[Rfam]
RNA sequence: UAGGAGCUGUAUGACUGGCGGAAACGUGAGAGUACUCACAGGGAGUACAGCAGAUUUCAUGCCGACCGCCUGGGCAACCUGA
Numbered sequence: 001u002a003g004g005a006g007c008u009g010u011a012u013g014a015c016u017g018g019c020g021g022a023a024a025c026g027u028g029a030g031a032g033u034a035c036u037c038a039c040a041g042g043g044a045g046u047a048c049a050g051c052a053g054a055u056u057u058c059a060u061g062c063c064g065a066c067c068g069c070c071u072g073g074g075c076a077a078c079c080u081g082a
Base pairs, nucleotide, nucleotide: 006051007050008049009048010047011046012045015042016041017070018069019068020067021066027038028037029036030035060076061075062074063073
Dot-bracket structure: .....(((((((..(([[[[[.....((((....))))..))..)))))))........((((..]]]]]..))))......
Annotation
The family of this 82-nucleotide RNA sequence from Lachnotalea glycerini is "ZMP/ZTP riboswitch aptamer (pfl RNA motif)". NCBI's taxonomy places the organism under Bacteria, Bacillati, Bacillota, Clostridia, Lachnotalea. The base pairs follow the family's consensus structure, which is taken from published work. A reference for the family is Jones and Ferre-D'Amare (2015), "Recognition of the bacterial alarmone ZMP through long-distance association of two RNA subdomains", Nat Struct Mol Biol.